[Rfam]
RNA: LOOT RNA
Nucleotides: 125
Base pairs, nucleotide, nucleotide: 001032002031003030004029009025010024011023012022013021014020038082039081040080041079042078043077044076045075046074047073048066050064051063052062053061054060084103085102086101087100088099089098090097091096104125105124106123107122108121
Number, partner (000 for none) and nucleotide at each position: 001032u002031g003030c004029c005000u006000a007000a008000a009025c010024u011023c012022u013021g014020a015000a016000a017000a018000a019000a020014u021013c022012a023011g024010a025009g026000c027000a028000u029004g030003g031002u032001a033000a034000u035000a036000a037000a038082c039081c040080u041079a042078c043077a044076g045075a046074a047073g048066a049000a050064a051063c052062g053061a054060g055000a056000g057000c058000u059000c060054c061053u062052c063051g064050u065000c066048u067000a068000u069000u070000a071000a072000c073047c074046u075045u076044c077043u078042g079041u080040a081039g082038g083000u084103c085102a086101u087100a088099a089098a090097u091096c092000g093000a094000a095000a096091g097090g098089u099088u100087u101086a102085u103084g104125g105124a106123u107122u108121u109000u110000u111000u112000c113000g114000a115000a116000a117000g118000a119000u120000u121108a122107a123106a124105u125104c